Record summary
A member of the RNA family "TPP riboswitch aptamer (THI element)" from Lacrimispora xylanisolvens, 99 nucleotides long. The family's consensus secondary structure is taken from published work. About the family: Vitamin B(1) in its active form thiamin pyrophosphate (TPP) is an essential coenzyme that is synthesised by coupling of pyrimidine and thiazole moieties in bacteria. The source organism's lineage runs through Bacteria, Bacillati, Lachnospirales, Lachnospiraceae and Lacrimispora.
RNA sequence: AUGACACGCUGGGGGAGCCUUAGGCUGAGAAUGGUAUUUACCUGACCCUUACUACUUGAACCGGACAAUGCCGGCGGAAGGAAGCAAUAGUAGUAGUCC
Numbered sequence: 001a002u003g004a005c006a007c008g009c010u011g012g013g014g015g016a017g018c019c020u021u022a023g024g025c026u027g028a029g030a031a032u033g034g035u036a037u038u039u040a041c042c043u044g045a046c047c048c049u050u051a052c053u054a055c056u057u058g059a060a061c062c063g064g065a066c067a068a069u070g071c072c073g074g075c076g077g078a079a080g081g082a083a084g085c086a087a088u089a090g091u092a093g094u095a096g097u098c099c
Stems, first nucleotide, its partner, number of pairs: 008085003011049004016043001017025003033042003055080003061074004